[Rfam]
Nucleotides: 077
Stems, first nucleotide, its partner, number of pairs: 013045001015043001017042002022076006029039002049066005
Number, partner (000 for none) and nucleotide at each position: 001000g002000g003000u004000c005000g006000c007000a008000a009000g010000u011000u012000u013045g014000a015043g016000a017042c018041c019000a020000a021000a022076g023075c024074a025073g026072a027071a028000g029039u030038g031000c032000u033000c034000a035000c036000a037000a038030c039029g040000g041018g042017g043015c044000c045013c046000u047000g048000u049066c050065a051064g052063a053062u054000g055000c056000c057000a058000a059000u060000a061000a062053a063052u064051c065050u066049g067000u068000g069000a070000a071027u072026u073025c074024u075023g076022u077000c
Source information
Shown here is a 77-nucleotide RNA sequence from Alligator sinensis, a member of the family "Mammalian CPEB3 ribozyme". From the family's description: The mammalian CPEB3 ribozyme is a self cleaving RNA located in the second intron of the CPEB3 gene which belongs to a family of genes regulating messenger RNA polyadenylation. The base pairs follow the family's consensus structure, which is taken from published work.